[Rfam]
RNA: mir-147 microRNA precursor family
Organism: Tursiops truncatus
RNA sequence: UAUGUACCUAGUGGAGCAUUUCUGCAUAGACAAGAUUAUGGAAACCAGUGUGUGGAAAUGCUUCUGCUAUAUAUUUA
Numbered sequence: 001u002a003u004g005u006a007c008c009u010a011g012u013g014g015a016g017c018a019u020u021u022c023u024g025c026a027u028a029g030a031c032a033a034g035a036u037u038a039u040g041g042a043a044a045c046c047a048g049u050g051u052g053u054g055g056a057a058a059u060g061c062u063u064c065u066g067c068u069a070u071a072u073a074u075u076u077a
Base pairs, nucleotide, nucleotide: 001077002076004074005073006072009069010068011067012066013065014064015063016062017060018059019058020057021056022055023054024053025052026051027050028049031048